[Rfam]
RNA sequence: CACGGUCGCGCGGGAGAGAUCGGUCGGGCAUCCACCUCGACCGGCGCCGAAGGAGCAACCGCCCCGGAAACUCUCAGGCACCCGGACCGCCCGAUCAGG
Numbered sequence: 001c002a003c004g005g006u007c008g009c010g011c012g013g014g015a016g017a018g019a020u021c022g023g024u025c026g027g028g029c030a031u032c033c034a035c036c037u038c039g040a041c042c043g044g045c046g047c048c049g050a051a052g053g054a055g056c057a058a059c060c061g062c063c064c065c066g067g068a069a070a071c072u073c074u075c076a077g078g079c080a081c082c083c084g085g086a087c088c089g090c091c092c093g094a095u096c097a098g099g
Base pairs, nucleotide, nucleotide: 006094007093008092010090011089012088013087020044021043022042023041024040025039026038027037028036046079047078048077049075050074053073054072055071059067060066
Shown here is a 99-nucleotide sequence from Euzebya pacifica, a member of the family "Glycine riboswitch aptamer". Rfam's curators write: This family represents the bacterial glycine riboswitch. A search with the family's covariance model found it, with a score of 60 bits.